[Rfam]
RNA sequence: AUGCAGGAUAAGUUACAAUGCAGCGUGUUCAGUACUGUAUUGUCGUUCCCCCUGCAAACAGUAACCUGUUUCCUCGCUAUCCCUGUCUGUCACUUCCUGUUGACUGACAGGGACGUAAGGUUUCAGACAU
Numbered sequence: 001a002u003g004c005a006g007g008a009u010a011a012g013u014u015a016c017a018a019u020g021c022a023g024c025g026u027g028u029u030c031a032g033u034a035c036u037g038u039a040u041u042g043u044c045g046u047u048c049c050c051c052c053u054g055c056a057a058a059c060a061g062u063a064a065c066c067u068g069u070u071u072c073c074u075c076g077c078u079a080u081c082c083c084u085g086u087c088u089g090u091c092a093c094u095u096c097c098u099g100u101u102g103a104c105u106g107a108c109a110g111g112g113a114c115g116u117a118a119g120g121u122u123u124c125a126g127a128c129a130u
Stems, first nucleotide, its partner, number of pairs: 003055005015043009082111004087106001089104002

This 130-nucleotide sequence from Kryptolebias marmoratus belongs to the Rfam family "Small nucleolar RNA SNORA63". It scores 95 bits against the family's covariance model. It is annotated as an H/ACA-box small nucleolar RNA. Rfam 15.1 lists 1,279 matches to the family in 601 species. From the family's description: E3 belongs to the H/ACA class of snoRNAs and is involved in the processing of eukaryotic pre-rRNA and has regions of complementarity to 18S rRNA. E3 is encoded in introns in the gene for protein synthesis initiation factor 4AII. For this family Rfam cites "Three small nucleolar RNAs that are involved in ribosomal RNA precursor processing" (Mishra and Eliceiri, Proc Natl Acad Sci U S A, 1997).